RNA sequence: AUUGUUCACUCUCCCUCAAGGCUUCCAAAGCAAUAACCGGCUACGUACAUGUAGCUGUAUUACGGCUGCCGGCUUGAGGCCUUCGGGGGAGAGUGAUCAAAAG
Numbered sequence: 001a002u003u004g005u006u007c008a009c010u011c012u013c014c015c016u017c018a019a020g021g022c023u024u025c026c027a028a029a030g031c032a033a034u035a036a037c038c039g040g041c042u043a044c045g046u047a048c049a050u051g052u053a054g055c056u057g058u059a060u061u062a063c064g065g066c067u068g069c070c071g072g073c074u075u076g077a078g079g080c081c082u083u084c085g086g087g088g089g090a091g092a093g094u095g096a097u098c099a100a101a102a103g
Base pairs, nucleotide, nucleotide: 006096007095008094009093010092011091012090013089014088015087017085018083019082020081021080022079023078024077025076

MIR473 microRNA precursor family: a 103-nucleotide sequence from Populus tomentosa. NCBI's taxonomy places the organism under Eukaryota, Embryophyta, Pentapetalae, Malpighiales, Populus. The match comes from Rfam's covariance-model search (64 bits). For this family Rfam cites "Novel and mechanical stress-responsive MicroRNAs in Populus trichocarpa that are absent from Arabidopsis" (Lu et al., Plant Cell, 2005).